[Rfam]
RNA sequence: UCGUGCUAAGCGGGGAGGUAGCGGUGCCCUACACUCGCAAUCCGCUAUAGCGAGGCCGAAUCCCCAUCCGAGGUGAUGUGGUUUCAAGGUCUGCCUUAUGAAAGUGGUGUUGACACUCAGGUCCUGCGCAACGGGAACCAGUGAAUCCUGUCAGGUCCGGAAGGAAGCAGCAGUAAGCUGUAUCUCUCGUGUGCCGCGGGAGUGCCUGGGUUGAGCCAUGAUCAUAAGUAACGCUUGGGACUCCAUCAUCGACGGUGGGUGCACGG
Number, nucleotide and partner (000 for none) at each position: 001u266002c265003g264004u263005g262006c261007u000008a000009a000010g056011c055012g030013g029014g028015g027016a000017g025018g000019u023020a000021g000022c000023g019024g000025u017026g000027c015028c014029c013030u012031a000032c000033a000034c054035u053036c052037g051038c050039a000040a000041u000042c000043c000044g000045c000046u000047a000048u000049a000050g038051c037052g036053a035054g034055g011056c010057c000058g000059a000060a000061u000062c000063c259064c258065c257066a256067u255068c254069c000070g000071a000072g250073g249074u248075g247076a246077u000078g000079u000080g242081g241082u240083u239084u238085c237086a236087a235088g234089g000090u000091c000092u230093g229094c000095c000096u227097u226098a225099u224100g223101a222102a000103a000104g000105u000106g217107g216108u215109g000110u000111u000112g000113a000114c000115a211116c210117u209118c208119a207120g206121g205122u204123c200124c199125u198126g197127c196128g195129c191130a190131a000132c189133g188134g187135g186136a185137a000138c000139c180140a179141g178142u177143g000144a000145a000146u000147c000148c173149u172150g171151u170152c000153a000154g000155g000156u165157c164158c163159g000160g000161a000162a000163g158164g157165a156166a000167g000168c000169a000170g151171c150172a149173g148174u000175a000176a000177g142178c141179u140180g139181u000182a000183u000184c000185u136186c135187u134188c133189g132190u130191g129192u000193g000194c000195c128196g127197c126198g125199g124200g123201a000202g000203u000204g122205c121206c120207u119208g118209g117210g116211u115212u000213g000214a000215g108216c107217c106218a000219u000220g000221a000222u101223c100224a099225u098226a097227a096228g000229u093230a092231a000232c000233g000234c088235u087236u086237g085238g084239g083240a082241c081242u080243c000244c000245a000246u076247c075248a074249u073250c072251g000252a000253c000254g068255g067256u066257g065258g064259g063260u000261g006262c005263a004264c003265g002266g001
RNA: Bacterial large signal recognition particle RNA
Organism: Halobacillus salinus